[Rfam]
RNA sequence: UCUGUGAAUUAGGUAGUUUCAUGUUGUUGGGCUCUUGGCUGCAAACGCAACGACAUCAAACUCCCUGAUUUACUCC
Numbered sequence: 001u002c003u004g005u006g007a008a009u010u011a012g013g014u015a016g017u018u019u020c021a022u023g024u025u026g027u028u029g030g031g032c033u034c035u036u037g038g039c040u041g042c043a044a045a046c047g048c049a050a051c052g053a054c055a056u057c058a059a060a061c062u063c064c065c066u067g068a069u070u071u072a073c074u075c076c
Stems, first nucleotide, its partner, number of pairs: 004073010015062005022055008031046001
Shown here is a 76-nucleotide RNA from Cnemophilus loriae, a member of the family "mir-196 microRNA precursor family". The organism belongs to Cnemophilus, within Eukaryota. A reference for the family is Lagos-Quintana et al. (2003), "New microRNAs from mouse and human", RNA.